RNA: Actinobacteria sRNA Ms_IGR-5
Organism: Streptomyces sp. MZ04
RNA sequence: ACACACGAAGGGAGGUGGUUCGGCCGAUGUAUGGAAACCGGACGCGUGAGGUGACUGCGGGCUAGUGGCCCGUCGUCGCAACUCGAAUUCGGCGCCGGACCAGCACGUGUGAUGUGCGUGCACCCGGCCCAAUCCCAAGCAGUCACCCGACCCGCGAGCCGCCGGUACGUCCGGCCGGCUUUCCGCCGUUCUGUACGGCGGGAACCACGGCUCGCGGGUUGUCCGCG
Numbered sequence: 001a002c003a004c005a006c007g008a009a010g011g012g013a014g015g016u017g018g019u020u021c022g023g024c025c026g027a028u029g030u031a032u033g034g035a036a037a038c039c040g041g042a043c044g045c046g047u048g049a050g051g052u053g054a055c056u057g058c059g060g061g062c063u064a065g066u067g068g069c070c071c072g073u074c075g076u077c078g079c080a081a082c083u084c085g086a087a088u089u090c091g092g093c094g095c096c097g098g099a100c101c102a103g104c105a106c107g108u109g110u111g112a113u114g115u116g117c118g119u120g121c122a123c124c125c126g127g128c129c130c131a132a133u134c135c136c137a138a139g140c141a142g143u144c145a146c147c148c149g150a151c152c153c154g155c156g157a158g159c160c161g162c163c164g165g166u167a168c169g170u171c172c173g174g175c176c177g178g179c180u181u182u183c184c185g186c187c188g189u190u191c192u193g194u195a196c197g198g199c200g201g202g203a204a205c206c207a208c209g210g211c212u213c214g215c216g217g218g219u220u221g222u223c224c225g226c227g
Stems, first nucleotide, its partner, number of pairs: 015058005060130001061128003065124001068121002071118003148221013161179006